Background: A member of the RNA family "mir-219 microRNA precursor family" from Astyanax mexicanus, 81 nucleotides long. Its family is annotated with RISC complex and miRNA-mediated post-transcriptional gene silencing in the Gene Ontology. Taxonomically the source falls in Astyanax (Eukaryota, Deuterostomia, Vertebrata, Ostariophysi). The literature on the family includes a 2003 paper in Science by Lim et al., "Vertebrate microRNA genes". A search with the family's covariance model found it, with a score of 68 bits.
RNA sequence: CGAGCUACUGAUUGUCCAAACGCAAUUCUUGUGAAAUGUCAAACGUUAAAUCGAGAAUUGUGCAUGGACAUCUGUUGCUGC
Numbered sequence: 001c002g003a004g005c006u007a008c009u010g011a012u013u014g015u016c017c018a019a020a021c022g023c024a025a026u027u028c029u030u031g032u033g034a035a036a037u038g039u040c041a042a043a044c045g046u047u048a049a050a051u052c053g054a055g056a057a058u059u060g061u062g063c064a065u066g067g068a069c070a071u072c073u074g075u076u077g078c079u080g081c
Stems, first nucleotide, its partner, number of pairs: 003079003007075001010072003014069005021062011